[Rfam]
RNA: U1 spliceosomal RNA
RNA sequence: UUAAUUACCUGGCAGGGGAGAUACCAUGAUCACUAAGGUGGUUCUCCCAGGGCGAGGCUCAUCCAUUGCACUCCAAGUGUGCUGACCCCUGCGAUUUCCCCAAAUGCGGGAAACUCGACUGCAUAAUUUAGUAAAUUUAAGUAAAGUCUUGUAUUAAU
Dot-bracket structure: ...........((((((((((.(((((..........)))))))))))((((.(.(((.(((..............))).)))..))))).((((((.((.......)).))).))).)))).................(.(.((........)).))